The family of this 259-nucleotide part of an RNA from Halobacterium salinarum is "Archaeal large subunit ribosomal RNA". The base pairs follow the family's consensus structure, which is taken from published work.
RNA sequence: GAGUGUGCCUGUUUGACGAGUCUAACCGGAGUAUCCGGGAAGGCGUAGGGAAACCAAUAUGGCCGCAGCAUUGCGAGGGCCACCGUGUUCAAGCGCGGGGAGUCAAACGGGCACGACCCGAAACCCGGUGAUCUACGCGUGGGCAAGGUGAAGCAUGGCGAAAGCCAUGUGGAGGCCUGUUAGGGUUGGUGUCUUUCAACACCCUCCCGUGACCUACGUGUAGGGGUGAAAGGCCCAUCGAACCGGGCAACAGCUGGUU
Numbered sequence: 001g002a003g004u005g006u007g008c009c010u011g012u013u014u015g016a017c018g019a020g021u022c023u024a025a026c027c028g029g030a031g032u033a034u035c036c037g038g039g040a041a042g043g044c045g046u047a048g049g050g051a052a053a054c055c056a057a058u059a060u061g062g063c064c065g066c067a068g069c070a071u072u073g074c075g076a077g078g079g080c081c082a083c084c085g086u087g088u089u090c091a092a093g094c095g096c097g098g099g100g101a102g103u104c105a106a107a108c109g110g111g112c113a114c115g116a117c118c119c120g121a122a123a124c125c126c127g128g129u130g131a132u133c134u135a136c137g138c139g140u141g142g143g144c145a146a147g148g149u150g151a152a153g154c155a156u157g158g159c160g161a162a163a164g165c166c167a168u169g170u171g172g173a174g175g176c177c178u179g180u181u182a183g184g185g186u187u188g189g190u191g192u193c194u195u196u197c198a199a200c201a202c203c204c205u206c207c208c209g210u211g212a213c214c215u216a217c218g219u220g221u222a223g224g225g226g227u228g229a230a231a232g233g234c235c236c237a238u239c240g241a242a243c244c245g246g247g248c249a250a251c252a253g254c255u256g257g258u259u
Base pairs, nucleotide, nucleotide: 005114006113007112008111009110010109011108012107013106014105015104016103017102020044021043022042023041026038027037028036029035048055049054061081062080063079064078068074069073084097085096086095087094117257118256120254124247125246126245127244128243129242133223134222135221136220137219138218139217140216141215142214143213144211146178147177148176149175153170154169155168156167157166158165159164183208184207185206188204189203191202192201225235226234227233